A member of the RNA family "Mammalian CPEB3 ribozyme" from Alligator mississippiensis, 78 nucleotides long. The match comes from Rfam's covariance-model search (45 bits).

RNA sequence: AGACAACAAGUUUGAGGCCAUAGCAGAAGCGCUUGCAAUGCGGCCAUGUCGGAUUCCAAUGAAUUUGCAAAUUCUGCU
Numbered sequence: 001a002g003a004c005a006a007c008a009a010g011u012u013u014g015a016g017g018c019c020a021u022a023g024c025a026g027a028a029g030c031g032c033u034u035g036c037a038a039u040g041c042g043g044c045c046a047u048g049u050c051g052g053a054u055u056c057c058a059a060u061g062a063a064u065u066u067g068c069a070a071a072u073u074c075u076g077c078u
Stems, first nucleotide, its partner, number of pairs: 013046001016045004022078007029041003050067007